Actinobacteria sRNA Ms_IGR-5: a 235-nucleotide RNA sequence from Actinopolymorpha singaporensis. The match comes from Rfam's covariance-model search (110 bits).

[Rfam]
RNA sequence: ACACGAGGAAGGAGGUGGUCCAACGCAUGCAUAGCUUUGGGACUCGUGAGGUGGCUGUCCGCUAGCCGCUGUCCCCUUAGUAAGGACUGACUGCCGAUCACCGGCUCGUCCUGAGGGUGCCCGCGCCAACGCGUGUGUGUGCACCGGAUGGCGGUCGGCGAAUUCAGGGCAGCCACCCGACCCGCGGGCGCUGGAUCUAGUCCCUCCAGCACAAAAAGCCCGCGGGUCGUCCCAU
Numbered sequence: 001a002c003a004c005g006a007g008g009a010a011g012g013a014g015g016u017g018g019u020c021c022a023a024c025g026c027a028u029g030c031a032u033a034g035c036u037u038u039g040g041g042a043c044u045c046g047u048g049a050g051g052u053g054g055c056u057g058u059c060c061g062c063u064a065g066c067c068g069c070u071g072u073c074c075c076c077u078u079a080g081u082a083a084g085g086a087c088u089g090a091c092u093g094c095c096g097a098u099c100a101c102c103g104g105c106u107c108g109u110c111c112u113g114a115g116g117g118u119g120c121c122c123g124c125g126c127c128a129a130c131g132c133g134u135g136u137g138u139g140u141g142c143a144c145c146g147g148a149u150g151g152c153g154g155u156c157g158g159c160g161a162a163u164u165c166a167g168g169g170c171a172g173c174c175a176c177c178c179g180a181c182c183c184g185c186g187g188g189c190g191c192u193g194g195a196u197c198u199a200g201u202c203c204c205u206c207c208a209g210c211a212c213a214a215a216a217a218g219c220c221c222g223c224g225g226g227u228c229g230u231c232c233c234a235u
Stems, first nucleotide, its partner, number of pairs: 014059006060160004065155002068152004074146001178229012190210006
The family's RNA type in Rfam is small RNA. Lineage of the source: Bacteria > Actinomycetota > Propionibacteriales > Actinopolymorphaceae > Actinopolymorpha.